[Rfam]
RNA sequence: GCGUUUGUGCAGUAUUGCAGUGGAAAUGAAUUGAUUUCACAACGCCUGCCUGCAGUAGGCUAUGUAUAUCGAAACAUUUUUGGUACUCCGAACAAGUAGAGUAGAAAGUAAAUUCGUUAGGGUAUUUAAAAGGCUGAGGUUUAAACUUCAGCCUUUUUU
Number, nucleotide and partner (000 for none) at each position: 001g000002c000003g097004u096005u095006u094007g093008u092009g000010c000011a000012g000013u000014a000015u000016u000017g000018c000019a000020g000021u000022g000023g000024a000025a000026a000027u000028g000029a000030a000031u000032u000033g000034a000035u000036u000037u000038c000039a000040c000041a000042a000043c000044g000045c000046c000047u000048g000049c000050c000051u000052g000053c000054a000055g000056u000057a000058g000059g000060c000061u000062a000063u000064g000065u000066a000067u000068a000069u000070c000071g000072a000073a000074a000075c000076a000077u000078u000079u000080u000081u000082g000083g000084u000085a000086c000087u000088c000089c000090g000091a000092a008093c007094a006095a005096g004097u003098a000099g000100a000101g000102u000103a000104g000105a000106a000107a000108g000109u000110a000111a000112a123113u122114u121115c120116g000117u000118u000119a000120g115121g114122g113123u112124a000125u000126u000127u000128a157129a156130a155131a154132g153133g152134c151135u150136g149137a148138g147139g146140u000141u000142u000143a000144a000145a000146c139147u138148u137149c136150a135151g134152c133153c132154u131155u130156u129157u128158u000159u000
Rfam assigns this 159-nucleotide RNA sequence from Caviibacterium pharyngocola to the family "Haemophilus regulatory RNA responsive to iron". From the family's description: Involved in iron homeostasis in Haemophilus species. Orthologues exist only among other Pasteurellacae. The base pairs follow the family's consensus structure, which was predicted with CMfinder. Lineage of the source: Bacteria > Pseudomonadota > Gammaproteobacteria > Pasteurellales > Caviibacterium. The match comes from Rfam's covariance-model search (78 bits).